A member of the RNA family "Archaeal large subunit ribosomal RNA" from Candidatus Micrarchaeum sp. AZ1, 571 nucleotides of a longer RNA. The match comes from Rfam's covariance-model search (2279 bits). Lineage of the source: Archaea > Nanobdellati > Candidatus Micrarchaeia > Candidatus Micrarchaeaceae > Candidatus Micrarchaeum.
[Rfam]
RNA sequence: CCUCCAGUGGGAAAUGAAGUCUCUAUGAAGCUUGACUACAGCCUGUUGUUGUUGUCCGGCUUGCUAUGCAUAGCGUAAGUGGGAGCGUCGAAGCGAUCGCUGCGGCGGUCGUGGAGCGACAAUGUAACACCACUCUUAGCUUGCCGUACAGCUAACCCGAGAGGGAACAGCUGCAGGUGGGUAGUUAGACUGGACGGUUACUUUCGAUAAGGAAACGAAAGCGACCAAUGCUCUGCUUAGGCGAGUUGGGAACUCGCUGUUAAGCAUAAAGGCAAAUGCAGGGCUGACUGUGUGCCGAAAAGCGUGACACGCAGACUGGAAACAGGGGCUUAACGAACGUUGGUAGCUCUUUUAAUGGGGCUCCAAGCUGUCAAACAAGUUACUCUAGAGGUAACCGAUUCGUCGCCGGUGAGAGUCCGCAUCGACCUGGCGCAUUGAUACAUCGAUAUGGGCUUGAGUUAUCCUGGCAGUGUACAAGCCGCCAAGGGUUGGGCUGUACGCCCAUUAAAAACUCACAUGAGCUGCGUUCAGUACGUCGCGAGACAGUACGGUAGUAUCUACUGGAGGUGUU
Number, nucleotide and partner (000 for none) at each position: 001c567002c566003u565004c564005c563006a562007g561008u560009g000010g559011g558012a557013a000014a000015u554016g000017a000018a000019g000020u000021c000022u389023c388024u387025a386026u000027g385028a384029a381030g380031c379032u378033u377034g000035a185036c184037u183038a182039c000040a000041g000042c177043c176044u175045g174046u173047u000048g171049u000050u000051g152052u151053u150054g149055u148056c000057c146058g145059g144060c143061u000062u000063g140064c139065u138066a137067u000068g135069c000070a000071u000072a000073g000074c000075g000076u000077a000078a134079g133080u132081g131082g130083g000084a000085g117086c116087g000088u000089c000090g000091a000092a000093g000094c000095g000096a109097u108098c107099g106100c105101u000102g000103c000104g000105g100106c099107g098108g097109u096110c000111g000112u000113g000114g000115a000116g086117c085118g000119a000120c000121a000122a000123u000124g000125u000126a000127a000128c000129a000130c082131c081132a080133c079134u078135c068136u000137u066138a065139g064140c063141u000142u000143g060144c059145c058146g057147u000148a055149c054150a053151g052152c051153u000154a000155a000156c165157c164158c163159g000160a000161g000162a000163g158164g157165g156166a000167a000168c000169a000170g000171c048172u000173g046174c045175a044176g043177g042178u000179g000180g000181g000182u038183a037184g036185u035186u000187a000188g199189a198190c197191u196192g000193g000194a000195c000196g191197g190198u189199u188200a000201c221202u220203u219204u218205c217206g000207a000208u000209a000210a000211g000212g000213a000214a000215a000216c000217g205218a204219a203220a202221g201222c000223g000224a000225c328226c327227a000228a000229u000230g000231c283232u282233c281234u280235g279236c278237u263238u262239a000240g258241g257242c256243g255244a254245g253246u000247u000248g000249g000250g000251a000252a000253c245254u244255c243256g242257c241258u240259g000260u000261u000262a238263a237264g273265c272266a000267u000268a000269a000270a000271g000272g265273c264274a000275a000276a000277u000278g236279c235280a234281g233282g232283g231284c000285u000286g000287a000288c314289u313290g312291u311292g310293u309294g308295c000296c306297g000298a000299a000300a000301a000302g000303c000304g000305u000306g296307a000308c294309a293310c292311g291312c290313a289314g288315a000316c325317u000318g323319g000320a000321a000322a000323c318324a000325g316326g000327g226328g225329c000330u000331u000332a000333a000334c000335g000336a000337a000338c000339g000340u366341u365342g364343g363344u000345a362346g361347c360348u359349c358350u000351u000352u000353u000354a000355a000356u000357g000358g349359g348360g347361c346362u345363c343364c342365a341366a340367g000368c000369u000370g000371u000372c000373a000374a000375a000376c000377a033378a032379g031380u030381u029382a000383c000384u028385c027386u025387a024388g023389a022390g000391g000392u000393a000394a000395c000396c000397g000398a439399u438400u437401c000402g436403u000404c432405g431406c430407c429408g428409g427410u000411g000412a000413g423414a422415g000416u000417c000418c000419g000420c000421a000422u414423c413424g000425a000426c000427c409428u408429g407430g406431c405432g404433c000434a000435u000436u402437g400438a399439u398440a000441c000442a000443u000444c000445g000446a000447u000448a000449u000450g525451g523452g522453c521454u520455u517456g514457a513458g512459u511460u510461a000462u000463c488464c487465u000466g000467g482468c481469a000470g479471u478472g000473u000474a000475c000476a000477a000478g471479c470480c000481g468482c467483c000484a000485a000486g000487g464488g463489u000490u504491g503492g502493g501494c500495u000496g000497u000498a000499c000500g494501c493502c492503c491504a490505u000506u000507a000508a000509a000510a460511a459512c458513u457514c456515a000516c000517a455518u000519g000520a454521g453522c452523u451524g000525c450526g000527u000528u000529c000530a000531g549532u548533a547534c546535g544536u543537c542538g000539c000540g000541a000542g537543a536544c535545a000546g534547u533548a532549c531550g000551g000552u000553a000554g015555u000556a000557u012558c011559u010560a008561c007562u006563g005564g004565a003566g002567g001568u000569g000570u000571u000